[Rfam]
RNA sequence: UCCAUGGCGAGGUGGAAUCUGAAGGAAACUGGCGGCAAAGUCCUGGCCUGACGGACAGAAACUACAUAUAAGGCCAAAGUUGUCCGGAUAAGGUUGCACACCAAACCAAAGUCCAAUACUGCUCGGAGACAACAUGGUAAAUGUAGCAGGUAGAUGGGAUGAAAGUUAUCGUU
Numbered sequence: 001u002c003c004a005u006g007g008c009g010a011g012g013u014g015g016a017a018u019c020u021g022a023a024g025g026a027a028a029c030u031g032g033c034g035g036c037a038a039a040g041u042c043c044u045g046g047c048c049u050g051a052c053g054g055a056c057a058g059a060a061a062c063u064a065c066a067u068a069u070a071a072g073g074c075c076a077a078a079g080u081u082g083u084c085c086g087g088a089u090a091a092g093g094u095u096g097c098a099c100a101c102c103a104a105a106c107c108a109a110a111g112u113c114c115a116a117u118a119c120u121g122c123u124c125g126g127a128g129a130c131a132a133c134a135u136g137g138u139a140a141a142u143g144u145a146g147c148a149g150g151u152a153g154a155u156g157g158g159a160u161g162a163a164a165g166u167u168a169u170c171g172u173u
Stems, first nucleotide, its partner, number of pairs: 001016005028173001030171003035166002040160006046151005062146006073138003079133006086114004092107004

A member of the RNA family "Group II catalytic intron D1-D4-3", 173 nucleotides long. The base pairs follow the family's consensus structure. Gene Ontology term of the family: Group II intron splicing. For this family Rfam cites "The ins and outs of group II introns" (Bonen and Vogel, Trends Genet, 2001).